[Rfam]
Rfam assigns this 113-nucleotide sequence from Carya illinoinensis to the family "Small nucleolar RNA R64/Z200 family".
Rfam 15.1 lists 748 matches to the family in 228 species.
Taxonomically the source falls in Carya (Eukaryota, Spermatophyta, fabids, Fagales).
RNA sequence: GUAGUGCCCGAUUAAAAAAUUAUCAUGUUUCUUCACAUGUCAGACUUAAGAGAUUUUUCCUCUUUCAUAAGGGGAAAGAUCUAUGAGAUUAUAUUCAUGUUUCUGAGCAUAAU
Numbered sequence: 001g002u003a004g005u006g007c008c009c010g011a012u013u014a015a016a017a018a019a020u021u022a023u024c025a026u027g028u029u030u031c032u033u034c035a036c037a038u039g040u041c042a043g044a045c046u047u048a049a050g051a052g053a054u055u056u057u058u059c060c061u062c063u064u065u066c067a068u069a070a071g072g073g074g075a076a077a078g079a080u081c082u083a084u085g086a087g088a089u090u091a092u093a094u095u096c097a098u099g100u101u102u103c104u105g106a107g108c109a110u111a112a113u
Base pairs, nucleotide, nucleotide: 001113002112004110005109006108007107052081053080054079055078056077057076058075059074060073061072062071063070064069
A reference for the family is Galardi et al. (2002), "Purified box C/D snoRNPs are able to reproduce site-specific 2'-O-methylation of target RNA in vitro", Mol Cell Biol.